[Rfam]
Small nucleolar RNA U3: a 216-nucleotide RNA from Hymenochirus boettgeri. Rfam's curators write: Small nucleolar RNAs (snoRNAs) are involved in the processing and modification of rRNA in the nucleolus. Taxonomically the source falls in Hymenochirus (Eukaryota, Eumetazoa, Dipnotetrapodomorpha, Pipinae). By type it is a C/D-box small nucleolar RNA. Gene Ontology terms of the family: RNA processing and nucleolus. The match comes from Rfam's covariance-model search (91 bits).

RNA sequence: AAGACUAUACUUUCAGGGAUCAUUUCUAAGUUUGCGAUGGUUGAAAUGUGCUUGAAAAUGUUCAAACUCCCUACCGCAAGGAUGCGAUUGAGUGUUUUCUUCUUUGCAAAAGGCAUGGGGACAAUGCUGUUUAGGUACAGGAGUUGUCUAUUGCUGAUGGCUGUUUCUUCUCUUUUAUUUUAAAGAGUAGGAAGGAGAGAUUCCAAUCUGAGCGGC
Numbered sequence: 001a002a003g004a005c006u007a008u009a010c011u012u013u014c015a016g017g018g019a020u021c022a023u024u025u026c027u028a029a030g031u032u033u034g035c036g037a038u039g040g041u042u043g044a045a046a047u048g049u050g051c052u053u054g055a056a057a058a059u060g061u062u063c064a065a066a067c068u069c070c071c072u073a074c075c076g077c078a079a080g081g082a083u084g085c086g087a088u089u090g091a092g093u094g095u096u097u098u099c100u101u102c103u104u105u106g107c108a109a110a111a112g113g114c115a116u117g118g119g120g121a122c123a124a125u126g127c128u129g130u131u132u133a134g135g136u137a138c139a140g141g142a143g144u145u146g147u148c149u150a151u152u153g154c155u156g157a158u159g160g161c162u163g164u165u166u167c168u169u170c171u172c173u174u175u176u177a178u179u180u181u182a183a184a185g186a187g188u189a190g191g192a193a194g195g196a197g198a199g200a201u202u203c204c205a206a207u208c209u210g211a212g213c214g215g216c
Stems, first nucleotide, its partner, number of pairs: 003038001005036001006034002009031003015027004048063001050061001052060001074215004092204001094202001096200008106164003117151001119149001122146004127140004167190002170187006